RNA: ffh sRNA
RNA sequence: GGUCCCGGGGAUCGCCCCCCGUCAGCGCAGGUGCGCCCACGGGGGCGUUUGUC
Number, nucleotide and partner (000 for none) at each position: 001g000002g000003u000004c000005c000006c000007g000008g000009g000010g000011a000012u000013c000014g000015c000016c045017c044018c043019c042020c041021g040022u039023c000024a000025g036026c035027g034028c033029a000030g000031g000032u000033g028034c027035g026036c025037c000038c000039a022040c021041g020042g019043g018044g017045g016046c000047g000048u000049u000050u000051g000052u000053c000